[Rfam]
RNA sequence: ACCUUCUCAAAAAAGCACCACAUUCUGUAACUGAUGCCUCAGCUUUAAAGCUGUGGUCAAGUCAUGGGAAUGUUGGCCGUCACGAGAAGGAGAAUUACGCAGUUUUAGUGGGUGAGACCAAAGAGAACCUCUUUUCUAAUGUUCAAUGUUUUGACUCUCAAUACUAACUGCGACAACU
Numbered sequence: 001a002c003c004u005u006c007u008c009a010a011a012a013a014a015g016c017a018c019c020a021c022a023u024u025c026u027g028u029a030a031c032u033g034a035u036g037c038c039u040c041a042g043c044u045u046u047a048a049a050g051c052u053g054u055g056g057u058c059a060a061g062u063c064a065u066g067g068g069a070a071u072g073u074u075g076g077c078c079g080u081c082a083c084g085a086g087a088a089g090g091a092g093a094a095u096u097a098c099g100c101a102g103u104u105u106u107a108g109u110g111g112g113u114g115a116g117a118c119c120a121a122a123g124a125g126a127a128c129c130u131c132u133u134u135u136c137u138a139a140u141g142u143u144c145a146a147u148g149u150u151u152u153g154a155c156u157c158u159c160a161a162u163a164c165u166a167a168c169u170g171c172g173a174c175a176a177c178u
Stems, first nucleotide, its partner, number of pairs: 018076002021072005032064003038055001040053005098172007107165002120149001122147001125144003
RNA: Small nucleolar RNA SNORA81